RNA sequence: CCUGCCACUAUACCUGCCUUGCCUUCCGUGGCUGGUAUAUUCCAGUGGUGAGCUGAGAGGAAGCCCAGUCUAGGAAGCAGCCCUCUCCUGGCUGUGGGGAGGCCUGUGCCGAAAGCCUGGGAACACGC
Numbered sequence: 001c002c003u004g005c006c007a008c009u010a011u012a013c014c015u016g017c018c019u020u021g022c023c024u025u026c027c028g029u030g031g032c033u034g035g036u037a038u039a040u041u042c043c044a045g046u047g048g049u050g051a052g053c054u055g056a057g058a059g060g061a062a063g064c065c066c067a068g069u070c071u072a073g074g075a076a077g078c079a080g081c082c083c084u085c086u087c088c089u090g091g092c093u094g095u096g097g098g099g100a101g102g103c104c105u106g107u108g109c110c111g112a113a114a115g116c117c118u119g120g121g122a123a124c125a126c127g128c
Stems, first nucleotide, its partner, number of pairs: 005048005018035002021032001022030001064121004068116002071113001073110002078106003082102002086098003